[Rfam]
Nucleotides: 090
Base pairs, nucleotide, nucleotide: 012037013036017032018031019030020029021028022027041083042082043081046080047079048078049075050074051073056069057068058067059066
Number, partner (000 for none) and nucleotide at each position: 001000a002000u003000g004000u005000g006000c007000a008000a009000a010000g011000g012037g013036c014000a015000u016000a017032c018031c019030a020029g021028u022027g023000g024000a025000a026000a027022c028021a029020u030019u031018g032017g033000g034000g035000c036013g037012c038000a039000a040000a041083g042082c043081c044000a045000c046080a047079g048078g049075g050074u051073c052000u053000a054000c055000g056069g057068g058067u059066c060000a061000a062000c063000u064000u065000c066059g067058a068057c069056c070000u071000a072000u073051g074050a075049c076000a077000g078048c079047c080046u081043g082042g083041c084000c085000g086000c087000c088000a089000c090000a